RNA sequence: AGGAAAAACCUCUUAUCCUAUAUCAAUAGAGGUACUCGUCCAUGCUGUGGGUUAUGAACCUUAGACGCCAGUCGUCGUUAGUGUGGAGUGGGGGUGGGUUUAAGGCCCA
Numbered sequence: 001a002g003g004a005a006a007a008a009c010c011u012c013u014u015a016u017c018c019u020a021u022a023u024c025a026a027u028a029g030a031g032g033u034a035c036u037c038g039u040c041c042a043u044g045c046u047g048u049g050g051g052u053u054a055u056g057a058a059c060c061u062u063a064g065a066c067g068c069c070a071g072u073c074g075u076c077g078u079u080a081g082u083g084u085g086g087a088g089u090g091g092g093g094g095u096g097g098g099u100u101u102a103a104g105g106c107c108c109a
Base pairs, nucleotide, nucleotide: 001019002018003017004016008033009032010031011030012029013028035092036091037090038089039087040086041085042084043083044082045081046080049061050060051059052058053057064076065075066074067073095109096108097107098106099105

Shown here is a 109-nucleotide RNA from Salipaludibacillus keqinensis, a member of the family "epsC RNA". It is annotated as a cis-regulatory element. The match comes from Rfam's covariance-model search (95 bits). Rfam 15.1 lists 450 matches to the family in 334 species.